[Rfam]
RNA sequence: GGCCGUCUGGCUCAAUUGGUAGAGCACCAGAUUUCGGGUCUGGGGGUUUAGGGUUCAAGUCCCUAGAUGGUCG
Numbered sequence: 001g002g003c004c005g006u007c008u009g010g011c012u013c014a015a016u017u018g019g020u021a022g023a024g025c026a027c028c029a030g031a032u033u034u035c036g037g038g039u040c041u042g043g044g045g046g047u048u049u050a051g052g053g054u055u056c057a058a059g060u061c062c063c064u065a066g067a068u069g070g071u072c073g
Base pairs, nucleotide, nucleotide: 001072002071003070004069005068006067007066010025011024012023013022027043028042029041030040031039049065050064051063052062053061
A member of the RNA family "tRNA" from Paramecium sonneborni, 73 nucleotides long. A search with the family's covariance model found it, with a score of 60 bits. Gene Ontology term of the family: triplet codon-amino acid adaptor activity. The family's RNA type in Rfam is transfer RNA. Taxonomically the source falls in Paramecium (Eukaryota, Ciliophora, Peniculida, Parameciidae).